[Rfam]
RNA: Bacterial RNase P class B
Organism: Mycoplasma putrefaciens
RNA sequence: UUUAUCGGUCAAUCGCUAUAUUUGAAAAAUGAUAUAGAGGAAACUCCACGCUUGCACAAUCUGUGAUGAUUGUAGUGUUUAUGCUAGAUGAAUAAAUAAGUCUAGGCAGUAGUUUUUACUGACGGCAUAACUAAGCUAAGGCAAUAGCUAAGCAGCAGUUAUAAAGUGCCACAGAGACGAGUAUAGGGAAACCUUGAAAUGGAACGCGGUAAACCCCAUAAGCAAGAAACUCAAAUUUUGGUAGAGGAGUCUAGUUAAGAAAAUUAGAAUCAAAACUAGAAGCUUAACAGCUAGAUAGAUGAUUGACGCUAGUAAUAGUACAAAACGUGGGUUAUAGAU
Dot-bracket structure: ...(((((((((((.((((((..........))))))....[[[.[[[[[(((((((((((......)))))).....(((((((((((..........))))))(((((((...)))))).)((.((((....((...(((....)))..)).....))))...(((((..............(((....))).............)))..))))))))))))))...(((...........)))...(((((((.................)))))))((((....))))........))))))).(((....))).......]]]]]]]].).)))
Numbered sequence: 001u002u003u004a005u006c007g008g009u010c011a012a013u014c015g016c017u018a019u020a021u022u023u024g025a026a027a028a029a030u031g032a033u034a035u036a037g038a039g040g041a042a043a044c045u046c047c048a049c050g051c052u053u054g055c056a057c058a059a060u061c062u063g064u065g066a067u068g069a070u071u072g073u074a075g076u077g078u079u080u081a082u083g084c085u086a087g088a089u090g091a092a093u094a095a096a097u098a099a100g101u102c103u104a105g106g107c108a109g110u111a112g113u114u115u116u117u118a119c120u121g122a123c124g125g126c127a128u129a130a131c132u133a134a135g136c137u138a139a140g141g142c143a144a145u146a147g148c149u150a151a152g153c154a155g156c157a158g159u160u161a162u163a164a165a166g167u168g169c170c171a172c173a174g175a176g177a178c179g180a181g182u183a184u185a186g187g188g189a190a191a192c193c194u195u196g197a198a199a200u201g202g203a204a205c206g207c208g209g210u211a212a213a214c215c216c217c218a219u220a221a222g223c224a225a226g227a228a229a230c231u232c233a234a235a236u237u238u239u240g241g242u243a244g245a246g247g248a249g250u251c252u253a254g255u256u257a258a259g260a261a262a263a264u265u266a267g268a269a270u271c272a273a274a275a276c277u278a279g280a281a282g283c284u285u286a287a288c289a290g291c292u293a294g295a296u297a298g299a300u301g302a303u304u305g306a307c308g309c310u311a312g313u314a315a316u317a318g319u320a321c322a323a324a325a326c327g328u329g330g331g332u333u334a335u336a337g338a339u
Stems, first nucleotide, its partner, number of pairs: 004339003007335001008307007016037006042333003046330005051226005056073006079221005084105006106123001107121006124216002127162004135153002140149003166214002168210003185194003230246003250280007281292004309318003